A member of the RNA family "Ruegeria cis2 sRNA" from Shimia marina, 146 nucleotides long. On this family, see Rivers et al., Front Microbiol 2016: "Experimental Identification of Small Non-Coding RNAs in the Model Marine Bacterium Ruegeria pomeroyi DSS-3". The family's consensus secondary structure was predicted with RNAfold. Taxonomically the source falls in Shimia (Bacteria, Pseudomonadati, Alphaproteobacteria, Roseobacteraceae). By type it is a small RNA.
RNA sequence: GUUGCGCGGCACAUAGUUGAUGAAGGCAAAGCCGCGCGCCUGAUCGAUGGCGUGAAACAGCGGGUUCCAGUCAAACAUCGCCAGCAUGAAGGGCGGCAGGGUGUUGGCGACAAACAUUUUGCCCGAGGCAAUCAUAUUGGCGCGUG
Number, nucleotide and partner (000 for none) at each position: 001g000002u024003u023004g000005c000006g000007c019008g018009g017010c000011a000012c000013a000014u000015a000016g000017u009018u008019g007020a000021u000022g000023a003024a002025g000026g000027c000028a000029a000030a000031g051032c050033c049034g048035c046036g045037c000038g000039c000040c000041u000042g000043a000044u000045c036046g035047a000048u034049g033050g032051c031052g000053u000054g000055a000056a000057a000058c146059a145060g000061c144062g143063g000064g076065u075066u074067c000068c000069a000070g000071u000072c000073a000074a066075a065076c064077a000078u000079c000080g141081c140082c139083a138084g137085c000086a135087u134088g133089a000090a000091g000092g000093g000094c125095g124096g123097c121098a120099g119100g118101g117102u116103g000104u113105u112106g111107g000108c000109g000110a000111c106112a105113a104114a000115c000116a102117u101118u100119u099120u098121g097122c000123c096124c095125g094126a000127g000128g000129c000130a000131a000132u000133c088134a087135u086136a000137u084138u083139g082140g081141c080142g000143c062144g061145u059146g058